[Rfam]
This 309-nucleotide RNA sequence from Camellia sinensis belongs to the Rfam family "Plant signal recognition particle RNA". It scores 230 bits against the family's covariance model. For this family Rfam cites "Towards the structure of the mammalian signal recognition particle" (Wild et al., Curr Opin Struct Biol, 2002). The family's RNA type in Rfam is non-coding RNA gene.
RNA sequence: GCCGGGCUUAGCAAUGUUGGCCUGUAACCCAAGUGGGGGCAACAAAGUGAUGGAACAUGGGUUUCAGCCCAAAGGGUAGGGCCUGUGGUUGCUAAUUUGCUGGGCUGUCCUGUCCAAGCUGAGAGCUUAGCCAUGCGGCCCAAGUGAAGGCCUGGGCUUUGUGGUUACUAAAGUGGAGGGUACUGCGUCAGGCUGGCCUCACAGAGCAGCGAUAACCUCUCACUCUCAGCAGUGGAAGGAUAGCAGUUCGGUGCAACUAAGACCCACCAAAUGCUCCGAGGGGUUGAACCUAAUUGGACCAUCACCUUU
Numbered sequence: 001g002c003c004g005g006g007c008u009u010a011g012c013a014a015u016g017u018u019g020g021c022c023u024g025u026a027a028c029c030c031a032a033g034u035g036g037g038g039g040c041a042a043c044a045a046a047g048u049g050a051u052g053g054a055a056c057a058u059g060g061g062u063u064u065c066a067g068c069c070c071a072a073a074g075g076g077u078a079g080g081g082c083c084u085g086u087g088g089u090u091g092c093u094a095a096u097u098u099g100c101u102g103g104g105c106u107g108u109c110c111u112g113u114c115c116a117a118g119c120u121g122a123g124a125g126c127u128u129a130g131c132c133a134u135g136c137g138g139c140c141c142a143a144g145u146g147a148a149g150g151c152c153u154g155g156g157c158u159u160u161g162u163g164g165u166u167a168c169u170a171a172a173g174u175g176g177a178g179g180g181u182a183c184u185g186c187g188u189c190a191g192g193c194u195g196g197c198c199u200c201a202c203a204g205a206g207c208a209g210c211g212a213u214a215a216c217c218u219c220u221c222a223c224u225c226u227c228a229g230c231a232g233u234g235g236a237a238g239g240a241u242a243g244c245a246g247u248u249c250g251g252u253g254c255a256a257c258u259a260a261g262a263c264c265c266a267c268c269a270a271a272u273g274c275u276c277c278g279a280g281g282g283g284u285u286g287a288a289c290c291u292a293a294u295u296g297g298a299c300c301a302u303c304a305c306c307u308u309u
Stems, first nucleotide, its partner, number of pairs: 001040003004023005010017001028037003044308002047305007056296002058293001060291001061289004066284001068281002075275004079265003082261001084259002087257001089256003093253002100251009109239002113236004118230008128167008137158006144151002168173001175220005186211003193204003